A member of the RNA family "Small nucleolar RNA SNORD113/SNORD114 family" from Tursiops truncatus, 72 nucleotides long. Rfam 15.1 lists 5,721 matches to the family in 142 species. Rfam describes the family as follows. The imprinted human domain at 14q32 contains two clusters of tandemly repeated small nucleolar RNAs named 14q(I) and 14q(II) snoRNAs. These two clusters are named SNORD113 and SNORD114 respectively in the HGNC approved gene symbol nomenclature. The organism belongs to Tursiops, within Eukaryota. The family's RNA type in Rfam is C/D-box small nucleolar RNA. Pairs were carried over by alignment from the consensus structure, which is taken from published work. Rfam links the family to the GO terms nucleolus and RNA processing. The family is grouped with related families in Rfam's "SNORD74 clan".
RNA sequence: UGGAGCAAUGAUGACCACUGGUGGCAUAUGCAUCGUGGAUGAUGAAUACGUGUCUGGAACUCUGAGGUCCAA
Numbered sequence: 001u002g003g004a005g006c007a008a009u010g011a012u013g014a015c016c017a018c019u020g021g022u023g024g025c026a027u028a029u030g031c032a033u034c035g036u037g038g039a040u041g042a043u044g045a046a047u048a049c050g051u052g053u054c055u056g057g058a059a060c061u062c063u064g065a066g067g068u069c070c071a072a
Stems, first nucleotide, its partner, number of pairs: 002070003006066001